[Rfam]
The family of this 89-nucleotide RNA from Methylophaga thalassica is "c-di-GMP-I riboswitch aptamer". It scores 43 bits against the family's covariance model. The organism belongs to Methylophaga thalassica, within Bacteria.
RNA sequence: AAUUAUCGGAGCCAACCUUGGUGCGAGCCAAGUACGGAAAGCUACAGAUCUCGGCUGAUGUACUUAGUUGAGAUGGCUGAGUUGCAUUU
Numbered sequence: 001a002a003u004u005a006u007c008g009g010a011g012c013c014a015a016c017c018u019u020g021g022u023g024c025g026a027g028c029c030a031a032g033u034a035c036g037g038a039a040a041g042c043u044a045c046a047g048a049u050c051u052c053g054g055c056u057g058a059u060g061u062a063c064u065u066a067g068u069u070g071a072g073a074u075g076g077c078u079g080a081g082u083u084g085c086a087u088u089u
Base pairs, nucleotide, nucleotide: 012037013036017032018031019030020029021028022027040083041082042081043080045079046078047077048074049073050072055067056066057065058064